[Rfam]
RNA sequence: GUCGGUUUCGGCGACAUGGUGCCGAAGACGUAUUUGGGCAUGCUCGUCGGCUCGUUGUGCGCCCUCAUGGGUGUGCUCACCAUCGCGUUGCCGGUGCCGGUCAUCGUGUCGAAC
Numbered sequence: 001g002u003c004g005g006u007u008u009c010g011g012c013g014a015c016a017u018g019g020u021g022c023c024g025a026a027g028a029c030g031u032a033u034u035u036g037g038g039c040a041u042g043c044u045c046g047u048c049g050g051c052u053c054g055u056u057g058u059g060c061g062c063c064c065u066c067a068u069g070g071g072u073g074u075g076c077u078c079a080c081c082a083u084c085g086c087g088u089u090g091c092c093g094g095u096g097c098c099g100g101u102c103a104u105c106g107u108g109u110c111g112a113a114c
Stems, first nucleotide, its partner, number of pairs: 001114002005110001007108001009106003013102003018097001021095002037077004049063003
Dot-bracket structure: ((..(.(.(((.(((..(..((..............((((........(((.........)))..........))))................)).)..))).))).).)..))
Background
The family of this 114-nucleotide RNA sequence from Caenorhabditis bovis is "Potassium channel RNA editing signal". This family represents a group of sequences related to the human potassium channel Kv1.1 hairpin element which directs the efficient modification of an adenosine to inosine by an adenosine deaminase acting on RNA (ADAR). The ADAR modification causes an isoleucine/valine recoding event which lies in the ion-conducting pore of the potassium channel. It is thought that this editing event targets the process of fast inactivation and allows a more rapid recovery from inactivation at negative potentials. Rfam classes the family as a cis-regulatory element. Lineage of the source: Eukaryota > Chromadorea > Rhabditida > Rhabditidae > Caenorhabditis.